[Rfam]
Shown here is a 353-nucleotide RNA sequence from Rhodosalinus halophilus, a member of the family "Alphaproteobacteria transfer-messenger RNA". The base pairs follow the family's consensus structure, which is taken from published work. A search with the family's covariance model found it, with a score of 304 bits. It is annotated as a non-coding RNA gene.
RNA sequence: CCCCUUGAAAUCGCGGCGGCGGGCGUCAAUAUUGACGGUGUCCCCUCGGGGACUAUGGGCAUAAACGCGCACGCAAUAAGCGGAUCGGACCCGGGGGCGGUACCCGGCGGCUCCACCAAUACCCCUGUCGUUGGCGGGAUCAUGGGGCCGAAACAGGAUCGACGAACGUGUAAAGGUGUGGCUUUGCCCCGGUGAGGUACCACCGUUAUCGGUCCGUAAAGCAUAAUUGCCAACGACAAUCAUGCUCCGGUCGCCGUUGCCGCGUAAGCGGUAACGAGACCGAAAUCUCGAAGCCCUGACCUCUAGCAAGGUCAGGCGGGGUUCGCAGGCACCUGGCAACAGAAGCCUGCACU
Dot-bracket structure: .......................................(((((....)))))...(((((.....((((((........((..(((...(((((.......)))))(((((((.............................)))))))............))).)).......)))).))..)))))((((..[[.[[[)))).....]]]]].......................................................................................................[[[[..((((((]]]]..........))))))...